RNA sequence: GGUCAUGAGUUCCAGCGACAAGCCCCGGCUGGCUGGACGGCAACCCUCCGCUGCGGUGGGGUGCCCCGGGUGAGGACACGGUCCUCGGAGCACCGGCGCUCCGACGGCAAGCGCAGGAG
Numbered sequence: 001g002g003u004c005a006u007g008a009g010u011u012c013c014a015g016c017g018a019c020a021a022g023c024c025c026c027g028g029c030u031g032g033c034u035g036g037a038c039g040g041c042a043a044c045c046c047u048c049c050g051c052u053g054c055g056g057u058g059g060g061g062u063g064c065c066c067c068g069g070g071u072g073a074g075g076a077c078a079c080g081g082u083c084c085u086c087g088g089a090g091c092a093c094c095g096g097c098g099c100u101c102c103g104a105c106g107g108c109a110a111g112c113g114c115a116g117g118a119g
Stems, first nucleotide, its partner, number of pairs: 002077003009038001011037006021030002039065003044061003048056002081108003085104006
Dot-bracket structure: .(((....(.((((((....((......)).)))))))(((..(((.((.....))..))).))).........)))...(((.((((((........)))))).)))...........